Rfam assigns this 138-nucleotide sequence from Fukomys damarensis to the family "Small nucleolar RNA SNORA8". NCBI's taxonomy places the organism under Eukaryota, Vertebrata, Euteleostomi, Eutheria, Fukomys. The match comes from Rfam's covariance-model search (118 bits). About the family: ACA8 is a member of the H/ACA class of snoRNA that guide the sites of modification of uridines to pseudouridines. The family's RNA type in Rfam is H/ACA-box small nucleolar RNA. Clan: SNORA8 clan.
[Rfam]
RNA sequence: UGUACUGUAUGGUAUUUGCACUCAACAGUUUAUUCCCAGUGGUGUGUUCAAAGGACAGUACAAUAGAAAUUCAGUGCCUGGCAAUGAUGGUUUCUUGGCUUUGUGCAUGUUAUACCUGGUAUUUCUAUUGAUACAGUA
Numbered sequence: 001u002g003u004a005c006u007g008u009a010u011g012g013u014a015u016u017u018g019c020a021c022u023c024a025a026c027a028g029u030u031u032a033u034u035c036c037c038a039g040u041g042g043u044g045u046g047u048u049c050a051a052a053g054g055a056c057a058g059u060a061c062a063a064u065a066g067a068a069a070u071u072c073a074g075u076g077c078c079u080g081g082c083a084a085u086g087a088u089g090g091u092u093u094c095u096u097g098g099c100u101u102u103g104u105g106c107a108u109g110u111u112a113u114a115c116c117u118g119g120u121a122u123u124u125c126u127a128u129u130g131a132u133a134c135a136g137u138a
Stems, first nucleotide, its partner, number of pairs: 002061006015054003018047004023042001024040001028036001064127007071119004081106003